[Rfam]
RNA sequence: UAAGUCCCGUUCCGGCAAGGUAGGUCAACCACCGGAUAGCAAGCAUCGGGCAGGCGGAGGUAACUCCAAAUGUUAAGCACGAUGGGCGCAAGCCAGCAGGCCGUAAGCGCAAGUUGAAGUGAUUUAGCCUCGAAAUGAUUUUACGUAAGCAGGACGACAGAGUACCCCUUCUGGAAGUCCCCAUUCUAUGAUGCAUUCUGACAAGUAUCAUAGGACUGCUUCGGGGUUGUAAAGCA
Numbered sequence: 001u002a003a004g005u006c007c008c009g010u011u012c013c014g015g016c017a018a019g020g021u022a023g024g025u026c027a028a029c030c031a032c033c034g035g036a037u038a039g040c041a042a043g044c045a046u047c048g049g050g051c052a053g054g055c056g057g058a059g060g061u062a063a064c065u066c067c068a069a070a071u072g073u074u075a076a077g078c079a080c081g082a083u084g085g086g087c088g089c090a091a092g093c094c095a096g097c098a099g100g101c102c103g104u105a106a107g108c109g110c111a112a113g114u115u116g117a118a119g120u121g122a123u124u125u126a127g128c129c130u131c132g133a134a135a136u137g138a139u140u141u142u143a144c145g146u147a148a149g150c151a152g153g154a155c156g157a158c159a160g161a162g163u164a165c166c167c168c169u170u171c172u173g174g175a176a177g178u179c180c181c182c183a184u185u186c187u188a189u190g191a192u193g194c195a196u197u198c199u200g201a202c203a204a205g206u207a208u209c210a211u212a213g214g215a216c217u218g219c220u221u222c223g224g225g226g227u228u229g230u231a232a233a234g235c236a
Stems, first nucleotide, its partner, number of pairs: 012035004019030003024202002037091001039089002044084003048078001049074004056067004127227006147221006153179003158173004184215011
Dot-bracket structure: ...........((((...(((..[[..))).)))).(.((...(((.(((((...((((....))))...))))...)...)))...)).)...................................((((((..............(((((((((..((((........))))...)))....(((((((((((......]]..))))))))))))))))))))))).........

The record is a 236-nucleotide sequence from a Bathymodiolus platifrons methanotrophic gill symbiont, which matches "Group II catalytic intron D1-D4-6" in Rfam. The organism belongs to Gammaproteobacteria, within Bacteria. Rfam 15.1 lists 1,617 matches to the family in 661 species. About the family: Group II introns are found in rRNA, tRNA and mRNA of organelles in fungi, plants and protists, and also in mRNA in bacteria.